[Rfam]
RNA: Caenorhabditis snoRNA ceN101
Organism: Caenorhabditis japonica
RNA sequence: UUCCUUGCUUAUAAGCCGGGGGACUAGCCUUUGCUAUGUUCACUAGUAAAACGCAAGGAAAACCAUAGAGACAACCAGACACCGUGAAUGUUUUGAUAUUUUCGGUCAUAGUGUGUCCCACAAUU
Numbered sequence: 001u002u003c004c005u006u007g008c009u010u011a012u013a014a015g016c017c018g019g020g021g022g023a024c025u026a027g028c029c030u031u032u033g034c035u036a037u038g039u040u041c042a043c044u045a046g047u048a049a050a051a052c053g054c055a056a057g058g059a060a061a062a063c064c065a066u067a068g069a070g071a072c073a074a075c076c077a078g079a080c081a082c083c084g085u086g087a088a089u090g091u092u093u094u095g096a097u098a099u100u101u102u103c104g105g106u107c108a109u110a111g112u113g114u115g116u117c118c119c120a121c122a123a124u125u
Base pairs, nucleotide, nucleotide: 002059003058004057005056006055007054008053015047016046019043021041022040023039024038025036026035027034028033068119070117071116072115073114076111081106082105083104084103086101087100088099089098090097091096